[Rfam]
RNA sequence: UUCCACAGGUACUGGCCUGAAACUGUUCUGUGCUGUAGCAGUUGCAGUAUUCCAACUGUGGGAAAAUAGCCGUCACGCUUGCAGAAUGCUCGUUUCCUAACCAGGAGAAGAGAAUUUCAGCGUGACGAACAAUA
Numbered sequence: 001u002u003c004c005a006c007a008g009g010u011a012c013u014g015g016c017c018u019g020a021a022a023c024u025g026u027u028c029u030g031u032g033c034u035g036u037a038g039c040a041g042u043u044g045c046a047g048u049a050u051u052c053c054a055a056c057u058g059u060g061g062g063a064a065a066a067u068a069g070c071c072g073u074c075a076c077g078c079u080u081g082c083a084g085a086a087u088g089c090u091c092g093u094u095u096c097c098u099a100a101c102c103a104g105g106a107g108a109a110g111a112g113a114a115u116u117u118c119a120g121c122g123u124g125a126c127g128a129a130c131a132a133u134a
Base pairs, nucleotide, nucleotide: 003061004060005059006058017047018046019045021043022042023041024040025039075123076122077121078120079119090113091112093108094107095106096105

The family of this 134-nucleotide RNA from Python bivittatus is "Small nucleolar RNA SNORA41". Rfam links the family to the GO terms RNA processing and nucleolus. The base pairs follow the family's consensus structure, which was predicted with PFOLD.